[Rfam]
RNA sequence: UUGUGCCGGGUGAGUCUUAUACGACCAGCUCCUACAGAAUCCCCCAGGCGAGGAAUCGAGCAAGGGUAUGUGGUUGUAGCGGUGCGAUAUAAUCAGCUCACCCAAC
Numbered sequence: 001u002u003g004u005g006c007c008g009g010g011u012g013a014g015u016c017u018u019a020u021a022c023g024a025c026c027a028g029c030u031c032c033u034a035c036a037g038a039a040u041c042c043c044c045c046a047g048g049c050g051a052g053g054a055a056u057c058g059a060g061c062a063a064g065g066g067u068a069u070g071u072g073g074u075u076g077u078a079g080c081g082g083u084g085c086g087a088u089a090u091a092a093u094c095a096g097c098u099c100a101c102c103c104a105a106c
Stems, first nucleotide, its partner, number of pairs: 008103008017092005022086002024083002
RNA: Bacteroidales small SRP
Organism: Alistipes finegoldii